RNA sequence: AUGUUUUUCAUGGUAUUAGAUUAAGGUUAGUGAAAAGUUGGUUGUCGUGAGACAAUCAAUUUUUUUUGU
Numbered sequence: 001a002u003g004u005u006u007u008u009c010a011u012g013g014u015a016u017u018a019g020a021u022u023a024a025g026g027u028u029a030g031u032g033a034a035a036a037g038u039u040g041g042u043u044g045u046c047g048u049g050a051g052a053c054a055a056u057c058a059a060u061u062u063u064u065u066u067u068g069u
Base pairs, nucleotide, nucleotide: 040057041056042055043054044053045052046051
RNA: Bacteroidetes FopS (family of paralogous sRNAs)